Shown here is a 123-nucleotide RNA sequence, a member of the family "Hepatitis C virus J7880 RNA". By type it is a cis-regulatory element. The literature on the family includes a 2015 paper in Proc Natl Acad Sci U S A by Mauger et al., "Functionally conserved architecture of hepatitis C virus RNA genomes".
RNA sequence: GUCAAGCUUGCCGCCUCCAAGGUCAGCGCCAGGCUUCUUUCGGUGGAAGAGGCAUGCAUGCUAACACCGCCCCAUUCUGCACGUUCCAAGUACGGAUUUGGGGCGAAGGAGGUCCGCAGCUUG
Number, nucleotide and partner (000 for none) at each position: 001g000002u000003c000004a000005a000006g120007c119008u118009u000010g000011c000012c000013g113014c112015c111016u110017c109018c108019a000020a000021g000022g065023u064024c000025a062026g000027c000028g057029c056030c000031a000032g053033g000034c000035u050036u049037c000038u047039u046040u000041c000042g000043g000044u000045g000046g039047a038048a000049g036050a035051g000052g000053c032054a000055u000056g029057c028058a000059u000060g000061c000062u025063a000064a023065c022066a000067c000068c103069g000070c101071c100072c000073c000074a097075u096076u095077c094078u092079g091080c090081a000082c000083g000084u000085u000086c000087c000088a000089a000090g080091u079092a078093c000094g077095g076096a075097u074098u000099u000100g071101g070102g000103g068104c000105g000106a000107a000108g018109g017110a016111g015112g014113u013114c000115c000116g000117c000118a008119g007120c006121u000122u000123g000